[Rfam]
RNA sequence: GCGAGACAACUGGCCCGGCGGCGCGUUGUGACCGAUAAACUGCCGUCGGACCGUGCCGGGCGCAGCUCCCGGACGGUCCGGCCAUGAUCAGCCAGCAGCCGCUGCAACCACAGGGAG
Dot-bracket structure: ...............................................((((((..(((((.......))))).)))))).............((((....)))).............
Numbered sequence: 001g002c003g004a005g006a007c008a009a010c011u012g013g014c015c016c017g018g019c020g021g022c023g024c025g026u027u028g029u030g031a032c033c034g035a036u037a038a039a040c041u042g043c044c045g046u047c048g049g050a051c052c053g054u055g056c057c058g059g060g061c062g063c064a065g066c067u068c069c070c071g072g073a074c075g076g077u078c079c080g081g082c083c084a085u086g087a088u089c090a091g092c093c094a095g096c097a098g099c100c101g102c103u104g105c106a107a108c109c110a111c112a113g114g115g116a117g
Stems, first nucleotide, its partner, number of pairs: 048079006056072005093104004